[Rfam]
RNA sequence: UCCAACCUUCAGGGCAAAGUGAGACAGUAAUGUCAAUUCUUGACCGGCGGUGAUGUAUCUGUAUGCAGCAUGAUAAUAAGUCCGCGAGCCAAAAAGGCCGAUUAAGUGAGAAUCUUAAACCGACAGUAUAGUCUGGAUGAAAGAAGAAGGAG
Numbered sequence: 001u002c003c004a005a006c007c008u009u010c011a012g013g014g015c016a017a018a019g020u021g022a023g024a025c026a027g028u029a030a031u032g033u034c035a036a037u038u039c040u041u042g043a044c045c046g047g048c049g050g051u052g053a054u055g056u057a058u059c060u061g062u063a064u065g066c067a068g069c070a071u072g073a074u075a076a077u078a079a080g081u082c083c084g085c086g087a088g089c090c091a092a093a094a095a096g097g098c099c100g101a102u103u104a105a106g107u108g109a110g111a112a113u114c115u116u117a118a119a120c121c122g123a124c125a126g127u128a129u130a131g132u133c134u135g136g137a138u139g140a141a142a143g144a145a146g147a148a149g150g151a152g
Base pairs, nucleotide, nucleotide: 003150007146008145009144010143017041018040019039043132044131045122046121047085048084049083050082080120081119088098089097090096102118103117104116105115106114124135125134126133
FMN riboswitch aptamer (RFN element): a 152-nucleotide sequence from Eubacterium sp. CAG:86.
The RFN element is a highly conserved domain that is found frequently in the 5'-untranslated regions of prokaryotic mRNAs that encode for flavin mononucleotide (FMN) biosynthesis and transport proteins.
The family's consensus secondary structure is taken from published work.
A search with the family's covariance model found it, with a score of 87 bits.